Shown here is a 136-nucleotide RNA sequence from Gouania willdenowi, a member of the family "Small nucleolar RNA SNORA14". By type it is an H/ACA-box small nucleolar RNA. It scores 56 bits against the family's covariance model. Rfam 15.1 lists 848 matches to the family in 633 species. Rfam describes the family as follows. ACA14 is a member of the H/ACA class of snoRNA that guide the sites of modification of uridines to pseudouridines. Lineage of the source: Eukaryota > Actinopterygii > Neopterygii > Clupeocephala > Gouania.
[Rfam]
RNA sequence: GUGCAUCCUUAAUAAACCCCCCAGUUGCUGUUUUCUUAGUCUCUGGGACAAGAAAGGGUGCAAGAUUAAUCUUAGAAUUAUCCAAAGCUGAGAGCCACGUGCAGUAUCUCUUUGCUAUUUCACCUCUAAGACAAAA
Numbered sequence: 001g002u003g004c005a006u007c008c009u010u011a012a013u014a015a016a017c018c019c020c021c022c023a024g025u026u027g028c029u030g031u032u033u034u035c036u037u038a039g040u041c042u043c044u045g046g047g048a049c050a051a052g053a054a055a056g057g058g059u060g061c062a063a064g065a066u067u068a069a070u071c072u073u074a075g076a077a078u079u080a081u082c083c084a085a086a087g088c089u090g091a092g093a094g095c096c097a098c099g100u101g102c103a104g105u106a107u108c109u110c111u112u113u114g115c116u117a118u119u120u121c122a123c124c125u126c127u128a129a130g131a132c133a134a135a136a
Stems, first nucleotide, its partner, number of pairs: 003061004009053002020047005027040002066135002070131007086116003090112003094108001098104001
Overview
Pairs were carried over by alignment from the consensus structure, which was predicted with RNAfold.